Shown here is a 128-nucleotide sequence from Pangasianodon hypophthalmus, a member of the family "Small nucleolar RNA SNORA55". Lineage of the source: Eukaryota > Eumetazoa > Actinopteri > Otomorpha > Pangasianodon. The family's consensus secondary structure was predicted with PFOLD. It scores 54 bits against the family's covariance model. ACA55 is a member of the H/ACA class of snoRNA that guide the sites of modification of uridines to pseudouridines. By type it is an H/ACA-box small nucleolar RNA. The family has 29 seed sequences and 1,476 matches in Rfam 15.1.

RNA sequence: GCACUCCAGCAAACCCUGUCCUCUUUCAGUGGUGGAUCUGGGUAAAAGUAGUGCAAGAGUGACUCAGAGUGUAUCCAGAUGAGCUUCUGCCACUGUUGGAGCUCGUCCCUACAACCUCUGAAACAUUC
Numbered sequence: 001g002c003a004c005u006c007c008a009g010c011a012a013a014c015c016c017u018g019u020c021c022u023c024u025u026u027c028a029g030u031g032g033u034g035g036a037u038c039u040g041g042g043u044a045a046a047a048g049u050a051g052u053g054c055a056a057g058a059g060u061g062a063c064u065c066a067g068a069g070u071g072u073a074u075c076c077a078g079a080u081g082a083g084c085u086u087c088u089g090c091c092a093c094u095g096u097u098g099g100a101g102c103u104c105g106u107c108c109c110u111a112c113a114a115c116c117u118c119u120g121a122a123a124c125a126u127u128c
Base pairs, nucleotide, nucleotide: 001054002053003052004051005050013043014042015041016040018038020035021034064121065120066119067118068117069115078107079106080105081104082103083102084101090099091098092097